[Rfam]
RNA sequence: CUUGACCGAGCCGAGCCAGAGCGGGUCCUCCCCGGCCCGCUCCUGCCCGUAGGUGGCCAGCAGCGCCUGCGCUUC
Numbered sequence: 001c002u003u004g005a006c007c008g009a010g011c012c013g014a015g016c017c018a019g020a021g022c023g024g025g026u027c028c029u030c031c032c033c034g035g036c037c038c039g040c041u042c043c044u045g046c047c048c049g050u051a052g053g054u055g056g057c058c059a060g061c062a063g064c065g066c067c068u069g070c071g072c073u074u075c
Base pairs, nucleotide, nucleotide: 014026016024017023031071033069038065039064043060044059045058047056048055049054
Rfam assigns this 75-nucleotide sequence from Amycolatopsis sp. YIM 10 to the family "ASpks TB sRNA". The family's consensus secondary structure is taken from published work. It is annotated as an antisense RNA. The match comes from Rfam's covariance-model search (82 bits). The literature on the family includes a 2009 paper in Mol Microbiol by Arnvig and Young, "Identification of small RNAs in Mycobacterium tuberculosis".